[Rfam]
RNA sequence: GGCUGCCUGGCGAAAUGGCAUCGCGUCUGACUACGAUACGGUAAUCAGGAGAUUGCAGGUUCGACCCCUGCGGCGGUCA
Numbered sequence: 001g002g003c004u005g006c007c008u009g010g011c012g013a014a015a016u017g018g019c020a021u022c023g024c025g026u027c028u029g030a031c032u033a034c035g036a037u038a039c040g041g042u043a044a045u046c047a048g049g050a051g052a053u054u055g056c057a058g059g060u061u062c063g064a065c066c067c068c069u070g071c072g073g074c075g076g077u078c079a
Stems, first nucleotide, its partner, number of pairs: 001078007010024004026049005055071005
This 79-nucleotide RNA sequence from Boletus reticuloceps belongs to the Rfam family "tRNA". The organism belongs to Boletus, within Eukaryota. Rfam describes the family as follows. Transfer RNA (tRNA) molecules are approximately 80 nucleotides in length.